[Rfam]
RNA sequence: ACUACAAACCGUGCUAUCGUCGUCUCUACCUAGUAGAGAGGGAGGAAAGUCCGGGCAGCAUAGAGCAACGCACCGCCUAACAGGCGGGAUUUGUGUAAACAGAUACAGAAAGUGCCGCAGAAAAUAACCGCCUCUACUUGUAGAGGUAAGGGUGAAAAUGUAGGGUAAGAGCCUACGCUUAGCAGUGGUAACAUUACUAGGGGGUAAACCUUGCGUGUUGAAAUGCCAUGUAUACGGUCGCCCGAGGGCUGCUCGCCCGAUUGUCGACCGAGGGUAGGCAGAUAGAGGUGUUGAGUAAUCAACAUCGUAGAUAAAUGGUAGCAAUCUCUACUUGUAGAGAUACAGAACCCGGCUUAUAGGUUUGUAGUUAUU
Numbered sequence: 001a002c003u004a005c006a007a008a009c010c011g012u013g014c015u016a017u018c019g020u021c022g023u024c025u026c027u028a029c030c031u032a033g034u035a036g037a038g039a040g041g042g043a044g045g046a047a048a049g050u051c052c053g054g055g056c057a058g059c060a061u062a063g064a065g066c067a068a069c070g071c072a073c074c075g076c077c078u079a080a081c082a083g084g085c086g087g088g089a090u091u092u093g094u095g096u097a098a099a100c101a102g103a104u105a106c107a108g109a110a111a112g113u114g115c116c117g118c119a120g121a122a123a124a125u126a127a128c129c130g131c132c133u134c135u136a137c138u139u140g141u142a143g144a145g146g147u148a149a150g151g152g153u154g155a156a157a158a159u160g161u162a163g164g165g166u167a168a169g170a171g172c173c174u175a176c177g178c179u180u181a182g183c184a185g186u187g188g189u190a191a192c193a194u195u196a197c198u199a200g201g202g203g204g205u206a207a208a209c210c211u212u213g214c215g216u217g218u219u220g221a222a223a224u225g226c227c228a229u230g231u232a233u234a235c236g237g238u239c240g241c242c243c244g245a246g247g248g249c250u251g252c253u254c255g256c257c258c259g260a261u262u263g264u265c266g267a268c269c270g271a272g273g274g275u276a277g278g279c280a281g282a283u284a285g286a287g288g289u290g291u292u293g294a295g296u297a298a299u300c301a302a303c304a305u306c307g308u309a310g311a312u313a314a315a316u317g318g319u320a321g322c323a324a325u326c327u328c329u330a331c332u333u334g335u336a337g338a339g340a341u342a343c344a345g346a347a348c349c350c351g352g353c354u355u356a357u358a359g360g361u362u363u364g365u366a367g368u369u370a371u372u
Stems, first nucleotide, its partner, number of pairs: 001368010011357001012323007020042002023039006047355003051352005056220004063254004068216005073087005088106001089104006107211002112209002114205003128151002130147007159177006179201001180199003184195004224280004235270005246258004287306008
Notes:
Bacterial RNase P class A: a 372-nucleotide RNA from Chitinophaga skermanii. Lineage of the source: Bacteria > Pseudomonadati > Chitinophagales > Chitinophagaceae > Chitinophaga. Rfam describes the family as follows. Ribonuclease P (RNase P) is a ubiquitous endoribonuclease, found in archaea, bacteria and eukarya as well as chloroplasts and mitochondria. By type it is a ribozyme.